The family of this 83-nucleotide RNA from Tupaia belangeri is "Small nucleolar RNA SNORD121A".
It is one of the family's seed sequences.
Gene Ontology terms of the family: RNA processing and nucleolus.
On this family, see Yang et al., Nucleic Acids Res 2006: "snoSeeker: an advanced computational package for screening of guide and orphan snoRNA genes in the human genome".
[Rfam]
RNA sequence: GUCCAGAAAACAAUGAUGUGAUAAUUUCCAAGCACAUAUCUGAUAAUUCCAUGUGGAAUUUAACCACUCUGAGUUUCCUGGAU
Numbered sequence: 001g002u003c004c005a006g007a008a009a010a011c012a013a014u015g016a017u018g019u020g021a022u023a024a025u026u027u028c029c030a031a032g033c034a035c036a037u038a039u040c041u042g043a044u045a046a047u048u049c050c051a052u053g054u055g056g057a058a059u060u061u062a063a064c065c066a067c068u069c070u071g072a073g074u075u076u077c078c079u080g081g082a083u
Base pairs, nucleotide, nucleotide: 001083002082003081004080005079006078008076009075010074011073